[Rfam]
RNA sequence: CGUACGAAACGGCAAAAUCAUUGAAAAAUGAUGACGCAAAGCUUUAGGGACUAAAGUUAUAGAUAAUAACUAUGUCAGCCAGCUUCCGAA
Numbered sequence: 001c002g003u004a005c006g007a008a009a010c011g012g013c014a015a016a017a018u019c020a021u022u023g024a025a026a027a028a029u030g031a032u033g034a035c036g037c038a039a040a041g042c043u044u045u046a047g048g049g050a051c052u053a054a055a056g057u058u059a060u061a062g063a064u065a066a067u068a069a070c071u072a073u074g075u076c077a078g079c080c081a082g083c084u085u086c087c088g089a090a
Stems, first nucleotide, its partner, number of pairs: 012037002017032006040084004047080002049076003056070004
Rfam assigns this 90-nucleotide sequence from Peribacillus loiseleuriae to the family "c-di-GMP-I riboswitch aptamer".